[Rfam]
RNA sequence: AAAGAAAGUGUUGUACUAGACAACCAAAUUAAUAAUUUUGCUUUCCGAGUAGCCCCUAUUUAGGGGCUUUUUUUAUUCU
Numbered sequence: 001a002a003a004g005a006a007a008g009u010g011u012u013g014u015a016c017u018a019g020a021c022a023a024c025c026a027a028a029u030u031a032a033u034a035a036u037u038u039u040g041c042u043u044u045c046c047g048a049g050u051a052g053c054c055c056c057u058a059u060u061u062a063g064g065g066g067c068u069u070u071u072u073u074u075a076u077u078c079u
Base pairs, nucleotide, nucleotide: 001074002073003072004071005070006069007068008067022042024040026038027037028036053066054065055064056063057062